[Rfam]
RNA: Archaeal large subunit ribosomal RNA, nucleotides 642 to 902
RNA sequence: GAGUGCAUCUGACUGGCGAGUCUAAGGGGAGAACCCCCGGAGGCAUAGGGAAACCGAUACGGCCGCAGUCUUUGACCAGGGCCACCGUCUUCAAGGGCGGGGAGCCAACCGGAUGCGACCCGAAACCAAGUGAUCUACGCCGGAGCAGGGCGAAGCGUGGCGAAAGCUGCGUGGAGGCCCGUUAGAGUUGGUGUCCUACAAUACCCUCUCGUGACUCUGGUGUAGGGGUGAAAGGCCCAUCGAACUUGGCAACAGCUGGUU
Dot-bracket structure: ....(((((((..((((..((((..((((.....))))..))))...((....)).....((((...(((...)))...))))..((((......))))....))))..)))))))..((.(...((((((...((((((((((((.((((...(((((((....)))))))....))))....(((..((.((........)))).)))..).))))))))))).(((.....)))......))))))......).))..